[Rfam]
RNA sequence: AGCCUGGGGGAUCAGGACAUCGCCUCUUUUUCCUGAAGGACACUCCCUUCAGAUCGUGAAUGGGAACUCCCUUCCCCCUGCAGCAGCCGGCCACAGCCGUCCUGACGUCCUGACGGUCCAGUGUGAAUGCUGCAGCAGCCGCCACGCCACAGCCACAAGAAAAGCGCCCCAGAGC
Numbered sequence: 001a002g003c004c005u006g007g008g009g010g011a012u013c014a015g016g017a018c019a020u021c022g023c024c025u026c027u028u029u030u031u032c033c034u035g036a037a038g039g040a041c042a043c044u045c046c047c048u049u050c051a052g053a054u055c056g057u058g059a060a061u062g063g064g065a066a067c068u069c070c071c072u073u074c075c076c077c078c079u080g081c082a083g084c085a086g087c088c089g090g091c092c093a094c095a096g097c098c099g100u101c102c103u104g105a106c107g108u109c110c111u112g113a114c115g116g117u118c119c120a121g122u123g124u125g126a127a128u129g130c131u132g133c134a135g136c137a138g139c140c141g142c143c144a145c146g147c148c149a150c151a152g153c154c155a156c157a158a159g160a161a162a163a164g165c166g167c168c169c170c171a172g173a174g175c
Stems, first nucleotide, its partner, number of pairs: 002175002004172001007170004012160002014048003023039003027035001056077001058074003062071003083145001084141001086139002094135001096133002099130001101129001110125001
FGF-1 internal ribosome entry site (IRES): a 175-nucleotide RNA from Octodon degus. The match comes from Rfam's covariance-model search (62 bits). The base pairs follow the family's consensus structure, which is taken from published work. Gene Ontology term of the family: ribosome binding. Rfam's curators write: This family represents the FGF-1 internal ribosome entry site (IRES). The FGF-1 IRES is present in the 5' UTR of the mRNA and allows cap-independent translation. It is thought that FGF-1 IRES activity is strictly controlled and highly tissue specific. The source organism's lineage runs through Eukaryota, Vertebrata, Hystricomorpha, Octodontidae and Octodon.